Overview: Shown here is a 54-nucleotide RNA from Python bivittatus, a member of the family "Editing element of GABA-3 exon 9". The family's RNA type in Rfam is cis-regulatory element. A reference for the family is Ohlson et al. (2007), "Editing modifies the GABA(A) receptor subunit alpha3", RNA. Lineage of the source: Eukaryota > Dipnotetrapodomorpha > Lepidosauria > Episquamata > Python.
[Rfam]
RNA sequence: AAAGUGGCUUAUGCCACCGCCAUGGACUGGUUUAUUGCGGUUUGCUACGCGUUC
Numbered sequence: 001a002a003a004g005u006g007g008c009u010u011a012u013g014c015c016a017c018c019g020c021c022a023u024g025g026a027c028u029g030g031u032u033u034a035u036u037g038c039g040g041u042u043u044g045c046u047a048c049g050c051g052u053u054c
Base pairs, nucleotide, nucleotide: 002053003052007050008049010047011046013045014044016041017040018039019038020037022035023034024033025032026031